The record is an 87-nucleotide RNA from Formicarius rufipectus, which matches "Small nucleolar RNA SNORD71" in Rfam. It scores 71 bits against the family's covariance model.
RNA sequence: AGUGCUGUUGAAGGAUGAAGCCUUUGAGUGAUCCAUCAGCAGAGCACGAUGUUGCCAUGCUGACACUCAUGCUACUGACAUUGCACU
Dot-bracket structure: .((((.((.(..((((.(..........).)))).(((((...(((......)))...)))))............)...)).)))).
Rfam 15.1 lists 556 matches to the family in 528 species. The family's consensus secondary structure was predicted with RNAalifold. By type it is an H/ACA-box small nucleolar RNA. Rfam's curators write: snoRNA HBII-239 belongs to the family of C/D snoRNAs.It is the human orthologue of the mouse MBII-239 described and is predicted to guide 2'O-ribose methylation of 5.8S rRNA on residue U14.